[Rfam]
RNA sequence: CGUCGCCCGCUCCGCUAAGGUCAAGGCCUUCGCGGCUGAGCGAUAAAUCAAUCUGGUCGUGCCGCUGGCUCACAAGGCCACCGCCAUGCGCAAUGAGGAAACCGGCCGCCAGCGUGCGGAAAGGUCCAGCGCAGUUUCCCGGCUGAGAAAUCGGCUGGGCGACGUAGAUCGCACGAUACCUCC
Numbered sequence: 001c002g003u004c005g006c007c008c009g010c011u012c013c014g015c016u017a018a019g020g021u022c023a024a025g026g027c028c029u030u031c032g033c034g035g036c037u038g039a040g041c042g043a044u045a046a047a048u049c050a051a052u053c054u055g056g057u058c059g060u061g062c063c064g065c066u067g068g069c070u071c072a073c074a075a076g077g078c079c080a081c082c083g084c085c086a087u088g089c090g091c092a093a094u095g096a097g098g099a100a101a102c103c104g105g106c107c108g109c110c111a112g113c114g115u116g117c118g119g120a121a122a123g124g125u126c127c128a129g130c131g132c133a134g135u136u137u138c139c140c141g142g143c144u145g146a147g148a149a150a151u152c153g154g155c156u157g158g159g160c161g162a163c164g165u166a167g168a169u170c171g172c173a174c175g176a177u178a179c180c181u182c183c
Stems, first nucleotide, its partner, number of pairs: 004042003012035004017030005057176006063083002066080005087133005097127003102124002106119004135162002138159009
RNA: RT-15 RNA
Organism: Magiavirus magia